The record is a 33-nucleotide sequence from Marinifilum sp. N1E240, which matches "DUF805b RNA" in Rfam.
Pairs were carried over by alignment from the consensus structure, which is taken from published work.
RNA sequence: AAAGCGUAUGCCGAAAAGCUUUUAGAGUAGGUG
Numbered sequence: 001a002a003a004g005c006g007u008a009u010g011c012c013g014a015a016a017a018g019c020u021u022u023u024a025g026a027g028u029a030g031g032u033g
Base pairs, nucleotide, nucleotide: 002021003020004019005018010032011031012030